[Rfam]
RNA sequence: CAGCCCUUGAUACUAACCGAGCUAUCUAUAUCCUAGCCUUGUGUCAAAGGCUCGUGAUGUGCUGUGAUAGCUGUGUUCAAGAAGUGCAAUAUUAAAACAAAAACGAUGAGUCUUUUAAGCCCAGUGUGUAAUGAUACAUUUUGAGUUAUAACUCAGAGGCACAACU
Numbered sequence: 001c002a003g004c005c006c007u008u009g010a011u012a013c014u015a016a017c018c019g020a021g022c023u024a025u026c027u028a029u030a031u032c033c034u035a036g037c038c039u040u041g042u043g044u045c046a047a048a049g050g051c052u053c054g055u056g057a058u059g060u061g062c063u064g065u066g067a068u069a070g071c072u073g074u075g076u077u078c079a080a081g082a083a084g085u086g087c088a089a090u091a092u093u094a095a096a097a098c099a100a101a102a103a104c105g106a107u108g109a110g111u112c113u114u115u116u117a118a119g120c121c122c123a124g125u126g127u128g129u130a131a132u133g134a135u136a137c138a139u140u141u142u143g144a145g146u147u148a149u150a151a152c153u154c155a156g157a158g159g160c161a162c163a164a165c166u
Base pairs, nucleotide, nucleotide: 003087004086006084007083008082015077016076017075020072021071022070023069024068025067026066027061028060029059030058031057032056033054035052036051037050038049039048040047104159124139125138126137127136128135129134140157141156142155143154144153145152146151

Source information
A member of the RNA family "Small Cajal body specific RNA 1" from Cebus imitator, 166 nucleotides long. Taxonomically the source falls in Cebus (Eukaryota, Opisthokonta, Sarcopterygii, Dipnotetrapodomorpha). A search with the family's covariance model found it, with a score of 166 bits. On this family, see Darzacq et al., EMBO J 2002: "Cajal body-specific small nuclear RNAs: a novel class of 2'-O-methylation and pseudouridylation guide RNAs". scaRNAs are a specific class of small nuclear RNAs which localise to the Cajal bodies and guide the modification of RNA polymerase II transcribed spliceosomal RNAs U1, U2, U4, U5 and U12. ACA35 belong to the H/ACA box class of guide RNAs as it has the predicted hairpin-hinge-hairpin-tail structure, conserved H/ACA-box motifs and is found associated with GAR1. It is predicted to guide pseudouridylation of the U2 spliceosomal snRNA at residue U89.